Rfam assigns this 237-nucleotide RNA from a Frankiaceae bacterium to the family "Actinobacteria sRNA Ms_IGR-5". NCBI's taxonomy places the organism under Bacteria, Bacillati, Actinomycetota, Frankiales, Frankiaceae.

RNA sequence: UCACGUGAGAGGAGGUGGUCCAGACUUUGUGUACAUCUGGGACUCGUGAGGUGGCUGUCCGCUAGGACGCCGUUCUGAAAGGACUCCGUCGGAGAUCCGCACGCCACAGGACGGCGUACGGCGAAUCCACGACAGGCACCAGUUCCCCCGGGCGCCGAGACUCGUCCCCUCGGCCCCUCCCGUACAGCCGGUCCAACCCCCGGGUGCGAGAGGGACAAGCCCGGGGGUUCCCCCUGU
Numbered sequence: 001u002c003a004c005g006u007g008a009g010a011g012g013a014g015g016u017g018g019u020c021c022a023g024a025c026u027u028u029g030u031g032u033a034c035a036u037c038u039g040g041g042a043c044u045c046g047u048g049a050g051g052u053g054g055c056u057g058u059c060c061g062c063u064a065g066g067a068c069g070c071c072g073u074u075c076u077g078a079a080a081g082g083a084c085u086c087c088g089u090c091g092g093a094g095a096u097c098c099g100c101a102c103g104c105c106a107c108a109g110g111a112c113g114g115c116g117u118a119c120g121g122c123g124a125a126u127c128c129a130c131g132a133c134a135g136g137c138a139c140c141a142g143u144u145c146c147c148c149c150g151g152g153c154g155c156c157g158a159g160a161c162u163c164g165u166c167c168c169c170u171c172g173g174c175c176c177c178u179c180c181c182g183u184a185c186a187g188c189c190g191g192u193c194c195a196a197c198c199c200c201c202g203g204g205u206g207c208g209a210g211a212g213g214g215a216c217a218a219g220c221c222c223g224g225g226g227g228u229u230c231c232c233c234c235u236g237u
Stems, first nucleotide, its partner, number of pairs: 014059006060123004066117001068116004073111005142230001145227009154174006